The record is a 91-nucleotide RNA from Hymenolepis diminuta, which matches "mir-219 microRNA precursor family" in Rfam. A search with the family's covariance model found it, with a score of 55 bits. NCBI's taxonomy places the organism under Eukaryota, Opisthokonta, Rhabditophora, Cyclophyllidea, Hymenolepis.
RNA sequence: AAGUGCUCUGAUUGUCCAUUCGCAUUUCUUGUGGCCUUCGAGUGAUCUUGUCACCGCUUCUCAAGAUGUGUGCAUGGGCAUCGCAGUACUU
Numbered sequence: 001a002a003g004u005g006c007u008c009u010g011a012u013u014g015u016c017c018a019u020u021c022g023c024a025u026u027u028c029u030u031g032u033g034g035c036c037u038u039c040g041a042g043u044g045a046u047c048u049u050g051u052c053a054c055c056g057c058u059u060c061u062c063a064a065g066a067u068g069u070g071u072g073c074a075u076g077g078g079c080a081u082c083g084c085a086g087u088a089c090u091u
Stems, first nucleotide, its partner, number of pairs: 002090006009083004014079005021072005027066005